[Rfam]
RNA sequence: UUAUCGAACAUUGGGGAGUAGCCGCCCCGUGCCGUGCCGUGCGGCCAGCCUUCGGGUUUUGCCGCGCGCCGCGCACGCGCAGCGGGGGCGUCCGUCAACAGACUUGGCCCGCGCGGCCAUGGCGGACGCAGCCUUUAUCGCCCAGGCCU
Number, nucleotide and partner (000 for none) at each position: 001u000002u000003a000004u000005c000006g000007a000008a000009c000010a000011u000012u000013g000014g000015g000016g000017a000018g000019u000020a000021g000022c000023c000024g000025c000026c086027c085028c084029g083030u082031g000032c000033c000034g000035u000036g000037c000038c000039g000040u000041g000042c000043g000044g000045c000046c000047a000048g000049c000050c000051u000052u000053c000054g000055g000056g000057u000058u000059u000060u000061g000062c000063c000064g000065c000066g000067c000068g000069c000070c000071g000072c000073g000074c000075a000076c000077g000078c000079g000080c000081a000082g030083c029084g028085g027086g026087g000088g129089c128090g127091u126092c125093c124094g123095u122096c121097a120098a000099c000100a000101g000102a000103c000104u000105u119106g118107g117108c116109c115110c000111g000112c000113g000114c000115g109116g108117c107118c106119a105120u097121g096122g095123c094124g093125g092126a091127c090128g089129c088130a000131g000132c000133c000134u000135u000136u000137a000138u000139c000140g000141c000142c000143c000144a000145g000146g000147c000148c000149u000